[Rfam]
RNA: PyrR binding site
RNA sequence: AGAACCUUUAAGUGCAGUCCUGUGAGGCUGGGAAGGGUACGGCAGAUGUAAUGAUACAAUGAAUUUCUAUGCCCUCUUAUCCCAGCAGGAUAGGAGGGCUUUAUUU
Numbered sequence: 001a002g003a004a005c006c007u008u009u010a011a012g013u014g015c016a017g018u019c020c021u022g023u024g025a026g027g028c029u030g031g032g033a034a035g036g037g038u039a040c041g042g043c044a045g046a047u048g049u050a051a052u053g054a055u056a057c058a059a060u061g062a063a064u065u066u067c068u069a070u071g072c073c074c075u076c077u078u079a080u081c082c083c084a085g086c087a088g089g090a091u092a093g094g095a096g097g098g099c100u101u102u103a104u105u106u
Stems, first nucleotide, its partner, number of pairs: 003038001005036005015030005045066002049062001051060002069101001071099012